[Rfam]
Overview
Rfam assigns this 106-nucleotide RNA sequence from Brassica rapa to the family "MIR398 microRNA precursor family". The literature on the family includes a 2004 paper in Mol Cell by Jones-Rhoades and Bartel, "Computational identification of plant microRNAs and their targets, including a stress-induced miRNA". The family's consensus secondary structure was predicted with WAR.
RNA sequence: UGAAAUCUCAAAGGAGUGUCAUGAGAACACAAAUCCUUUGGUUUCCUUAAAAUAUCCAUUGAAACUAUGGAGUUAUGUGUUCUCAGGUCACCCCUUCGAGUUCCUC
Number, nucleotide and partner (000 for none) at each position: 001u000002g000003a000004a000005a000006u000007c100008u099009c000010a000011a096012a095013g094014g093015a000016g091017u090018g089019u000020c000021a000022u000023g084024a083025g082026a081027a080028c079029a078030c077031a076032a000033a000034u000035c000036c000037u000038u000039u000040g000041g000042u000043u000044u000045c000046c000047u000048u000049a000050a000051a000052a000053u000054a000055u000056c000057c000058a000059u000060u000061g000062a000063a000064a000065c000066u000067a000068u000069g000070g000071a000072g000073u000074u000075a000076u031077g030078u029079g028080u027081u026082c025083u024084c023085a000086g000087g000088u000089c018090a017091c016092c000093c014094c013095u012096u011097c000098g000099a008100g007101u000102u000103c000104c000105u000106c000